RNA sequence: GCCGAAAUAGCGUUAGACUGAAAAUCUAAAGGUCCCUGGUUUGAUCCCAGGUUUCGGCA
Numbered sequence: 001g002c003c004g005a006a007a008u009a010g011c012g013u014u015a016g017a018c019u020g021a022a023a024a025u026c027u028a029a030a031g032g033u034c035c036c037u038g039g040u041u042u043g044a045u046c047c048c049a050g051g052u053u054u055c056g057g058c059a
Stems, first nucleotide, its partner, number of pairs: 001058007013029005035051005
Dot-bracket structure: (((((((.....(((((.......))))).....(((((.......)))))))))))).
Shown here is a 59-nucleotide sequence from Acipenser ruthenus, a member of the family "tRNA". It scores 50 bits against the family's covariance model. By type it is a transfer RNA. The base pairs follow the family's consensus structure, which is taken from published work.